[Rfam]
This 95-nucleotide RNA from Manihot esculenta belongs to the Rfam family "Small nucleolar RNA snoR31/Z110/Z27". A search with the family's covariance model found it, with a score of 57 bits. On this family, see Chen et al., Nucleic Acids Res 2003: "The high diversity of snoRNAs in plants: identification and comparative study of 120 snoRNA genes from Oryza sativa". Rfam's curators write: This family contains several related snoRNAs including R31, Z27 and Z110.
RNA sequence: AUCAUCAAUUGAUGAAACAUGGAAAAUCUUAGGACACCUUCCUACAUAGCUUAUAUAGCUAUGGAUGAGAAUAACAUUUCCAUUCUGAUGAUGAU
Numbered sequence: 001a002u003c004a005u006c007a008a009u010u011g012a013u014g015a016a017a018c019a020u021g022g023a024a025a026a027u028c029u030u031a032g033g034a035c036a037c038c039u040u041c042c043u044a045c046a047u048a049g050c051u052u053a054u055a056u057a058g059c060u061a062u063g064g065a066u067g068a069g070a071a072u073a074a075c076a077u078u079u080c081c082a083u084u085c086u087g088a089u090g091a092u093g094a095u
Stems, first nucleotide, its partner, number of pairs: 001095007